[Rfam]
RNA sequence: CUGCCUUAAACUAAUGAGUAAGGAAAACAAAGCAAGCGGUGAGAGCCGGUUGCCGCGUCCAGUUUCGUAAGUGGCGCAACAAUUUAUGGAGGGGCUAUAGGCUGGCCGGUCGUUGACGCUGCUUACUUUGCAGAACUCGGCCGUGCGGGCCUCCUGCCU
Numbered sequence: 001c002u003g004c005c006u007u008a009a010a011c012u013a014a015u016g017a018g019u020a021a022g023g024a025a026a027a028c029a030a031a032g033c034a035a036g037c038g039g040u041g042a043g044a045g046c047c048g049g050u051u052g053c054c055g056c057g058u059c060c061a062g063u064u065u066c067g068u069a070a071g072u073g074g075c076g077c078a079a080c081a082a083u084u085u086a087u088g089g090a091g092g093g094g095c096u097a098u099a100g101g102c103u104g105g106c107c108g109g110u111c112g113u114u115g116a117c118g119c120u121g122c123u124u125a126c127u128u129u130g131c132a133g134a135a136c137u138c139g140g141c142c143g144u145g146c147g148g149g150c151c152u153c154c155u156g157c158c159u
Stems, first nucleotide, its partner, number of pairs: 004023005032053004037048003055077005092159004099152005105146001107143002110140003119133004